mir-393 microRNA precursor family: a 143-nucleotide sequence from Corchorus capsularis. A search with the family's covariance model found it, with a score of 61 bits. On this family, see Kruszka et al., J Plant Physiol 2012: "Role of microRNAs and other sRNAs of plants in their changing environments".

[Rfam]
RNA sequence: GAUGGAAAAUUCCGAAGGGAUCGCAUGAUCCAAUGAGAGUGAACUGAAUACAGAAAUCUCUGUGCUGUAAUCUAACCCCAUAAAUUCCUUGAGGAAUUAAUCCAUCAACAUUAGAUCAAUGCGAUCCCUUUGGAGCUUUCCAC
Numbered sequence: 001g002a003u004g005g006a007a008a009a010u011u012c013c014g015a016a017g018g019g020a021u022c023g024c025a026u027g028a029u030c031c032a033a034u035g036a037g038a039g040u041g042a043a044c045u046g047a048a049u050a051c052a053g054a055a056a057u058c059u060c061u062g063u064g065c066u067g068u069a070a071u072c073u074a075a076c077c078c079c080a081u082a083a084a085u086u087c088c089u090u091g092a093g094g095a096a097u098u099a100a101u102c103c104a105u106c107a108a109c110a111u112u113a114g115a116u117c118a119a120u121g122c123g124a125u126c127c128c129u130u131u132g133g134a135g136c137u138u139u140c141c142a143c
Base pairs, nucleotide, nucleotide: 003142004141005140006139008137010135011134012133013132014131015130016129017128018127019126020125021124023122024121025120026118027117028116029115030114
Record summary:
Rfam links the family to the GO terms RISC complex and miRNA-mediated post-transcriptional gene silencing. The base pairs follow the family's consensus structure.